[Rfam]
RNA sequence: UGCGAUACCCAUCAAAGAAGUCGUUCCCCAUCCAAGGACCACCUUACCAUAUUCUGAAAUC
Numbered sequence: 001u002g003c004g005a006u007a008c009c010c011a012u013c014a015a016a017g018a019a020g021u022c023g024u025u026c027c028c029c030a031u032c033c034a035a036g037g038a039c040c041a042c043c044u045u046a047c048c049a050u051a052u053u054c055u056g057a058a059a060u061c
Stems, first nucleotide, its partner, number of pairs: 017045002020042002023039004

About this RNA
This 61-nucleotide RNA from Hibiscus trionum belongs to the Rfam family "Plastid-psbN 5UTR RNA". Rfam describes the family as follows. Plastid psbN is a non-coding RNA (ncRNA) recognised in plastids. It was reported as a conserved 11 stem-loop in the prime untranslated region (5UTR) of psbN genes. Rfam classes the family as a cis-regulatory element. The family has 63 seed sequences and 2,345 matches in Rfam 15.1. NCBI's taxonomy places the organism under Eukaryota, Streptophyta, Euphyllophyta, eudicotyledons, Hibiscus.